[Rfam]
RNA sequence: AGUUCCCUAGCUCGUAGGACAGUAGAUUAAGUCCCUGAGCCGAUAAACUUUAUUAAGGAAUGUAGUUUGCUUGCUAUUGAGCAAGCUCGGCAUGUACCGAGAAGCCUACGGUGAGCUGUUGCAUUCCGCCUUGAACCUCAGGGUUCAAGGGCUGACAUCCGCAUCCGCGACGCCGGGGAACAC
Numbered sequence: 001a002g003u004u005c006c007c008u009a010g011c012u013c014g015u016a017g018g019a020c021a022g023u024a025g026a027u028u029a030a031g032u033c034c035c036u037g038a039g040c041c042g043a044u045a046a047a048c049u050u051u052a053u054u055a056a057g058g059a060a061u062g063u064a065g066u067u068u069g070c071u072u073g074c075u076a077u078u079g080a081g082c083a084a085g086c087u088c089g090g091c092a093u094g095u096a097c098c099g100a101g102a103a104g105c106c107u108a109c110g111g112u113g114a115g116c117u118g119u120u121g122c123a124u125u126c127c128g129c130c131u132u133g134a135a136c137c138u139c140a141g142g143g144u145u146c147a148a149g150g151g152c153u154g155a156c157a158u159c160c161g162c163a164u165c166c167g168c169g170a171c172g173c174c175g176g177g178g179a180a181c182a183c
Stems, first nucleotide, its partner, number of pairs: 002181007010173002012170004017166003031152004036147006057127003061123006069116007081105002086101005
The record is a 183-nucleotide sequence from Pseudoalteromonas sp. A25, which matches "6S / SsrS RNA" in Rfam.
By type it is a non-coding RNA gene.